[Rfam]
RNA sequence: GAGAUUGUAGCUCAGUUGGAUUAGAGCAUCUGCCUUCUAAGCAGAGGGUCGCGUGUUCGAAUCACGCCAGUCUCA
Numbered sequence: 001g002a003g004a005u006u007g008u009a010g011c012u013c014a015g016u017u018g019g020a021u022u023a024g025a026g027c028a029u030c031u032g033c034c035u036u037c038u039a040a041g042c043a044g045a046g047g048g049u050c051g052c053g054u055g056u057u058c059g060a061a062u063c064a065c066g067c068c069a070g071u072c073u074c075a
Stems, first nucleotide, its partner, number of pairs: 001074007010027004029045005051067005
A member of the RNA family "tRNA" from Treponema berlinense, 75 nucleotides long. Its family is annotated with triplet codon-amino acid adaptor activity in the Gene Ontology. It is annotated as a transfer RNA. Rfam's curators write: Transfer RNA (tRNA) molecules are approximately 80 nucleotides in length. The match comes from Rfam's covariance-model search (70 bits).